[Rfam]
Nucleotides: 085
Base pairs, nucleotide, nucleotide: 003056006053007052008051009050010049011048012047015044016043017073018072019071020070021069029040030039031038032037064078065077066076
Number, partner (000 for none) and nucleotide at each position: 001000u002000g003056g004000c005000g006053c007052g008051u009050c010049c011048g012047u013000g014000a015044c016043u017073g018072g019071c020070g021069a022000g023000a024000u025000c026000a027000g028000g029040a030039u031038g032037g033000c034000c035000u036000a037032c038031c039030a040029u041000c042000g043016g044015g045000g046000a047012g048011c049010g050009g051008a052007c053006g054000a055000u056003u057000u058000u059000u060000u061000a062000c063000a064078g065077c066076c067000g068000a069021u070020c071019g072018c073017c074000u075000g076066g077065g078064c079000g080000u081000u082000u083000c084000a085000c
The family of this 85-nucleotide RNA sequence from Sphingorhabdus sp. SMR4y is "ZMP/ZTP riboswitch aptamer (pfl RNA motif)". Rfam links the family to the GO terms one-carbon metabolic process and regulation of purine nucleotide biosynthetic process. The match comes from Rfam's covariance-model search (58 bits).